[Rfam]
RNA sequence: GUGCAGGAAAAGUUACAAUACAGCUUGUGUAGUACUGUAUUGUCGUUCCCCCUGCAAAAAGUAAUCUGUUUCUUCGCUAUACCUGUCUGUCAUAUUGUGGCUGCCAGGCACGUAAGGUUUCAGACAU
Numbered sequence: 001g002u003g004c005a006g007g008a009a010a011a012g013u014u015a016c017a018a019u020a021c022a023g024c025u026u027g028u029g030u031a032g033u034a035c036u037g038u039a040u041u042g043u044c045g046u047u048c049c050c051c052c053u054g055c056a057a058a059a060a061g062u063a064a065u066c067u068g069u070u071u072c073u074u075c076g077c078u079a080u081a082c083c084u085g086u087c088u089g090u091c092a093u094a095u096u097g098u099g100g101c102u103g104c105c106a107g108g109c110a111c112g113u114a115a116g117g118u119u120u121c122a123g124a125c126a127u
Base pairs, nucleotide, nucleotide: 003055004054005053006052007051015043016042017041018040019039020038021037022036023035025034082108083107084106085105087103089101090100
The family of this 127-nucleotide sequence from Parambassis ranga is "Small nucleolar RNA SNORA63". Pairs were carried over by alignment from the consensus structure, which was predicted with PFOLD. On this family, see Mishra and Eliceiri, Proc Natl Acad Sci U S A 1997: "Three small nucleolar RNAs that are involved in ribosomal RNA precursor processing". E3 belongs to the H/ACA class of snoRNAs and is involved in the processing of eukaryotic pre-rRNA and has regions of complementarity to 18S rRNA. E3 is encoded in introns in the gene for protein synthesis initiation factor 4AII. Gene Ontology terms of the family: RNA processing and nucleolus. The family's RNA type in Rfam is H/ACA-box small nucleolar RNA.